Rfam assigns this 104-nucleotide RNA from Paucibacter sp. KCTC 42545 to the family "Glycine riboswitch aptamer". Taxonomically the source falls in Roseateles (Bacteria, Betaproteobacteria, Burkholderiales, Sphaerotilaceae). It scores 49 bits against the family's covariance model. The family is grouped with related families in Rfam's "Glycine riboswitch clan".
RNA sequence: UCCGCCCCGUCAGGAGAGAGCUUUCUAGCGAAAGCCGCCGAAGGCGCAGUGGCACUGGUGAUCCCACGCUGCGAACGCUCAGGCAAAAGGACUGACAAAACGCU
Numbered sequence: 001u002c003c004g005c006c007c008c009g010u011c012a013g014g015a016g017a018g019a020g021c022u023u024u025c026u027a028g029c030g031a032a033a034g035c036c037g038c039c040g041a042a043g044g045c046g047c048a049g050u051g052g053c054a055c056u057g058g059u060g061a062u063c064c065c066a067c068g069c070u071g072c073g074a075a076c077g078c079u080c081a082g083g084c085a086a087a088a089g090g091a092c093u094g095a096c097a098a099a100a101c102g103c104u
Base pairs, nucleotide, nucleotide: 009096010095011094012093013092020035021034022033023032037084038083039082040080041079044078045077046076050071051070052069053068